[Rfam]
RNA sequence: UAUUGGUGCAGAUAGGAAACUAGGCUGUAUACCUGUGUAGUCGAACUUACGUUUAAGCGACAUGUAAUGUUGCCGACCAUGGGGGCCACAGAAGUGGCUUUUUUUAUGA
Numbered sequence: 001u002a003u004u005g006g007u008g009c010a011g012a013u014a015g016g017a018a019a020c021u022a023g024g025c026u027g028u029a030u031a032c033c034u035g036u037g038u039a040g041u042c043g044a045a046c047u048u049a050c051g052u053u054u055a056a057g058c059g060a061c062a063u064g065u066a067a068u069g070u071u072g073c074c075g076a077c078c079a080u081g082g083g084g085g086c087c088a089c090a091g092a093a094g095u096g097g098c099u100u101u102u103u104u105u106a107u108g109a
Stems, first nucleotide, its partner, number of pairs: 007029005013022002032083006040077004044053003057073006084099006
This 109-nucleotide RNA belongs to the Rfam family "DUF3800-I RNA".
Rfam classes the family as a small RNA.
Actinobacteria, Firmicutes, Fusobacteria, Proteobacteria (1 example), Tenericutes (2 examples).
It is one of the family's seed sequences.